A member of the RNA family "Purine riboswitch aptamer" from Sporosarcina sp. P19, 102 nucleotides long. The family's consensus secondary structure is taken from published work.
Nucleotides: 102
Base pairs, nucleotide, nucleotide: 020086021085022084023083024082025081029049031047032046033045034044035043058078059077060076061075062074063073064072
Number, partner (000 for none) and nucleotide at each position: 001000a002000c003000c004000a005000u006000u007000c008000a009000g010000u011000u012000a013000a014000a015000u016000a017000a018000g019000a020086c021085u022084c023083a024082u025081a026000u027000a028000a029049u030000c031047a032046c033045g034044g035043g036000g037000a038000u039000a040000u041000g042000g043035c044034c045033c046032g047031u048000a049029a050000g051000u052000u053000u054000c055000u056000a057000c058078c059077g060076g061075u062074c063073u064072a065000c066000c067000g068000a069000a070000a071000a072064u073063a074062g075061a076060c077059u078058g079000c080000c081025u082024a083023u084022g085021g086020g087000g088000a089000g090000a091000a092000u093000g094000g095000a096000a097000a098000g099000c100000a101000g102000c